[Rfam]
Nucleotides: 067
Stems, first nucleotide, its partner, number of pairs: 040057007
Number, partner (000 for none) and nucleotide at each position: 001000a002000u003000g004000u005000u006000u007000u008000u009000c010000a011000c012000a013000g014000u015000a016000a017000u018000a019000g020000a021000u022000u023000u024000a025000a026000g027000g028000u029000u030000a031000a032000c033000a034000a035000g036000g037000u038000g039000u040057g041056g042055g043054g044053c045052a046051c047000g048000g049000u050000g051046g052045u053044g054043c055042c056041c057040c058000u059000u060000u061000u062000u063000u064000a065000u066000u067000a